[Rfam]
RNA sequence: CCCAGCGCUAACGCGCUGGGCUCAAUAAUUUUGUCCCUGCGGGACU
Number, nucleotide and partner (000 for none) at each position: 001c020002c019003c018004a017005g016006c015007g014008c013009u000010a000011a000012c000013g008014c007015g006016c005017u004018g003019g002020g001021c000022u000023c000024a000025a000026u000027a000028a000029u000030u000031u000032u000033g045034u044035c043036c042037c041038u000039g000040c000041g037042g036043g035044a034045c033046u000